A member of the RNA family "MIR7486 microRNA precursor family" from Gossypium lobatum, 86 nucleotides long. Rfam links the family to the GO terms RISC complex and miRNA-mediated post-transcriptional gene silencing. The base pairs follow the family's consensus structure, which was predicted with RNAalifold. A search with the family's covariance model found it, with a score of 90 bits. NCBI's taxonomy places the organism under Eukaryota, Spermatophyta, Magnoliopsida, rosids, Gossypium. Rfam 15.1 lists 10,132 matches to the family in 36 species.
RNA sequence: CACGUCAGAGCGCUUUGUUGACGUGGUAGCAAAUCGCGUCCUAGAGGGCGCGAUUUGCUGCAUGUCAGCAAAGCGCUCUGACGUGG
Numbered sequence: 001c002a003c004g005u006c007a008g009a010g011c012g013c014u015u016u017g018u019u020g021a022c023g024u025g026g027u028a029g030c031a032a033a034u035c036g037c038g039u040c041c042u043a044g045a046g047g048g049c050g051c052g053a054u055u056u057g058c059u060g061c062a063u064g065u066c067a068g069c070a071a072a073g074c075g076c077u078c079u080g081a082c083g084u085g086g
Base pairs, nucleotide, nucleotide: 001085002084003083004082005081006080007079008078009077010076011075012074013073014072015071016070017069018068019067020066021065023063024062025061027060028059029058030057031056032055033054034053035052036051037050038049040047041046